[Rfam]
RNA sequence: CUGGGGAGCAGGGCUUAGCUGCUGUGAGCAGUCACACCAAGUCGUGUUCACAGUGGCUAAGUUCCGCCCCCCGG
Number, nucleotide and partner (000 for none) at each position: 001c000002u000003g000004g000005g000006g000007a000008g000009c000010a000011g064012g063013g062014c061015u060016u059017a058018g057019c056020u055021g000022c000023u000024g051025u050026g049027a048028g047029c046030a045031g000032u000033c000034a000035c000036a000037c000038c000039a000040a000041g000042u000043c000044g000045u030046g029047u028048u027049c026050a025051c024052a000053g000054u000055g020056g019057c018058u017059a016060a015061g014062u013063u012064c011065c000066g000067c000068c000069c000070c000071c000072c000073g000074g000
Rfam assigns this 74-nucleotide RNA from Crocuta crocuta to the family "mir-27 microRNA precursor family". Gene Ontology terms of the family: miRNA-mediated post-transcriptional gene silencing and RISC complex. Pairs were carried over by alignment from the consensus structure, which was predicted with RNAalifold. NCBI's taxonomy places the organism under Eukaryota, Opisthokonta, Metazoa, Bilateria, Crocuta.